[Rfam]
RNA: mir-194 microRNA precursor family
Organism: Microcaecilia unicolor
RNA sequence: CAGUGUCUAUUGCAUGUAACAGCAACUCCAUGUGGAAGGGUCUGUGUUUCCAGUGGAGCUGCUGUUAUUAUCCAUGGGCAC
Numbered sequence: 001c002a003g004u005g006u007c008u009a010u011u012g013c014a015u016g017u018a019a020c021a022g023c024a025a026c027u028c029c030a031u032g033u034g035g036a037a038g039g040g041u042c043u044g045u046g047u048u049u050c051c052a053g054u055g056g057a058g059c060u061g062c063u064g065u066u067a068u069u070a071u072c073c074a075u076g077g078g079c080a081c
Base pairs, nucleotide, nucleotide: 010074012072016068017067018066019065020064021063022062023061026058027057028056029055030054031053033052034051035050